Rfam assigns this 83-nucleotide sequence to the family "Small nucleolar RNA SNORD34". It scores 57 bits against the family's covariance model. The family's consensus secondary structure was predicted with PFOLD. From the family's description: snoRNA U34 is found in intron 5 of the ribosomal protein L13a gene in humans. For this family Rfam cites "The high diversity of snoRNAs in plants: identification and comparative study of 120 snoRNA genes from Oryza sativa" (Chen et al., Nucleic Acids Res, 2003). The family is grouped with related families in Rfam's "SNORD34 clan".
RNA sequence: UGGGGCCUGUGAUGACUAAAACAUUUGCCUACAUUGUCUGAUUUCUUUUCCUGAAAGACAAUUUUCAACAUUCUGAGGCCUCA
Numbered sequence: 001u002g003g004g005g006c007c008u009g010u011g012a013u014g015a016c017u018a019a020a021a022c023a024u025u026u027g028c029c030u031a032c033a034u035u036g037u038c039u040g041a042u043u044u045c046u047u048u049u050c051c052u053g054a055a056a057g058a059c060a061a062u063u064u065u066c067a068a069c070a071u072u073c074u075g076a077g078g079c080c081u082c083a
Stems, first nucleotide, its partner, number of pairs: 001083002004080004